[Rfam]
RNA sequence: UUUGAAUAGCGCAACAUCUCUUGUAUAAGCUCAUUAAUACGGUUUGAGCGUUUCGACCAGGCAACCCUAAAUUGCCCCAGGCUACAAGAGGCCGUUGUACCGAU
Numbered sequence: 001u002u003u004g005a006a007u008a009g010c011g012c013a014a015c016a017u018c019u020c021u022u023g024u025a026u027a028a029g030c031u032c033a034u035u036a037a038u039a040c041g042g043u044u045u046g047a048g049c050g051u052u053u054c055g056a057c058c059a060g061g062c063a064a065c066c067c068u069a070a071a072u073u074g075c076c077c078c079a080g081g082c083u084a085c086a087a088g089a090g091g092c093c094g095u096u097g098u099a100c101c102g103a104u
Stems, first nucleotide, its partner, number of pairs: 018090008029049005058080001060076005
Dot-bracket structure: .................((((((((...(((((...........)))))........(.(((((.......)))))...)..))))))))..............

Background: Purine riboswitch aptamer: a 104-nucleotide RNA from Paenibacillus beijingensis. The base pairs follow the family's consensus structure, which is taken from published work. From the family's description: Riboswitches are metabolite binding domains within certain messenger RNAs that serve as precision sensors for their corresponding targets. The match comes from Rfam's covariance-model search (59 bits). The source organism's lineage runs through Bacteria, Bacillati, Bacilli, Paenibacillaceae and Paenibacillus.